[Rfam]
RNA sequence: AGCACAGAUGAUGACUUUUUGGGACUUAAUACUGAUCUUGUGAUGUCACCAAUGUGAACAACUGAUGUGU
Numbered sequence: 001a002g003c004a005c006a007g008a009u010g011a012u013g014a015c016u017u018u019u020u021g022g023g024a025c026u027u028a029a030u031a032c033u034g035a036u037c038u039u040g041u042g043a044u045g046u047c048a049c050c051a052a053u054g055u056g057a058a059c060a061a062c063u064g065a066u067g068u069g070u
Base pairs, nucleotide, nucleotide: 002070003069004068005067006066
The record is a 70-nucleotide RNA sequence from Phrynocephalus forsythii, which matches "Small nucleolar RNA SNORD82" in Rfam. Rfam classes the family as a C/D-box small nucleolar RNA. About the family: snoRNA U82 or Z25 is found in both humans and mice. The match comes from Rfam's covariance-model search (46 bits). Rfam 15.1 lists 649 matches to the family in 590 species. The organism belongs to Phrynocephalus, within Eukaryota. On this family, see Galardi et al., Mol Cell Biol 2002: "Purified box C/D snoRNPs are able to reproduce site-specific 2'-O-methylation of target RNA in vitro".